[Rfam]
RNA sequence: UCGACCGCCCAUAAGGGGAUCGGCAACACAGUCAAGAACCGCGAAAGCGGUCUUGCGAAGGUCUGUACCCAUGUUGCUCAAAGGAGGAUAUGGCUAUGGCAA
Numbered sequence: 001u002c003g004a005c006c007g008c009c010c011a012u013a014a015g016g017g018g019a020u021c022g023g024c025a026a027c028a029c030a031g032u033c034a035a036g037a038a039c040c041g042c043g044a045a046a047g048c049g050g051u052c053u054u055g056c057g058a059a060g061g062u063c064u065g066u067a068c069c070c071a072u073g074u075u076g077c078u079c080a081a082a083g084g085a086g087g088a089u090a091u092g093g094c095u096a097u098g099g100c101a102a
Stems, first nucleotide, its partner, number of pairs: 001023004006018001008017002033055004038051005063099005069093007077086003
Source information:
Rfam assigns this 102-nucleotide RNA sequence from Paracoccus seriniphilus to the family "Repression of heat shock gene expression (ROSE) element". It scores 52 bits against the family's covariance model. Rfam classes the family as an RNA thermoregulator. A reference for the family is Nocker et al. (2001), "A mRNA-based thermosensor controls expression of rhizobial heat shock genes", Nucleic Acids Res. NCBI's taxonomy places the organism under Bacteria, Pseudomonadati, Pseudomonadota, Rhodobacterales, Paracoccus. About the family: This family represents a 5' UTR cis-regulatory element found in heat shock mRNAs and is known as the ROSE (repression of heat shock gene expression) element. The ROSE element is a negative regulator of heat shock gene expression.